[Rfam]
RNA: Small nucleolar RNA SNORA48
RNA sequence: ACCCCCUGGCAGUGGGCAAAGAGAUACCUUAUUGGUGGUGCUGAUCUUUUAUCAGUCAGGGGCAGAGCAAAUGACAGUCCUUUGUUCAUCCUAGCUUGAUGCCUGCGACAGUGGCCAAAACUGUUUCAUGCCUAAGGCACAUUA
Numbered sequence: 001a002c003c004c005c006c007u008g009g010c011a012g013u014g015g016g017c018a019a020a021g022a023g024a025u026a027c028c029u030u031a032u033u034g035g036u037g038g039u040g041c042u043g044a045u046c047u048u049u050u051a052u053c054a055g056u057c058a059g060g061g062g063c064a065g066a067g068c069a070a071a072u073g074a075c076a077g078u079c080c081u082u083u084g085u086u087c088a089u090c091c092u093a094g095c096u097u098g099a100u101g102c103c104u105g106c107g108a109c110a111g112u113g114g115c116c117a118a119a120a121c122u123g124u125u126u127c128a129u130g131c132c133u134a135a136g137g138c139a140c141a142u143u144a
Stems, first nucleotide, its partner, number of pairs: 003062006013054003019048003023042001025040004083139004098132001100130001104128002108124003112120001